Annotation:
The family of this 167-nucleotide RNA from Eubacterium sp. CAG:38 is "Clostridiales-1 RNA". Taxonomically the source falls in Eubacterium (Bacteria, Bacillati, Bacillota, Eubacteriaceae).

[Rfam]
RNA sequence: UGAUGUCAGGGGACAAAGGUCUGAACCCACAUGAGCUUGCUCAUAAGUGGGUAAAAGACCUUGGGACCCGCCCGCUAUUCGCAUAAAAGCGGGACGGAAGUCCUGCGAUAUGCGAAUAGCGGUGUGAAUUGUGGGAGUGUGUAGCACGGAACAAUUCACAGACAUCA
Numbered sequence: 001u002g003a004u005g006u007c008a009g010g011g012g013a014c015a016a017a018g019g020u021c022u023g024a025a026c027c028c029a030c031a032u033g034a035g036c037u038u039g040c041u042c043a044u045a046a047g048u049g050g051g052u053a054a055a056a057g058a059c060c061u062u063g064g065g066a067c068c069c070g071c072c073c074g075c076u077a078u079u080c081g082c083a084u085a086a087a088a089g090c091g092g093g094a095c096g097g098a099a100g101u102c103c104u105g106c107g108a109u110a111u112g113c114g115a116a117u118a119g120c121g122g123u124g125u126g127a128a129u130u131g132u133g134g135g136a137g138u139g140u141g142u143a144g145c146a147c148g149g150a151a152c153a154a155u156u157c158a159c160a161g162a163c164a165u166c167a
Stems, first nucleotide, its partner, number of pairs: 001167007011068002014065001017061006025052006031044005072122007081113004089106007126157007137147004

By type it is a small RNA. Pairs were carried over by alignment from the consensus structure, which is taken from published work.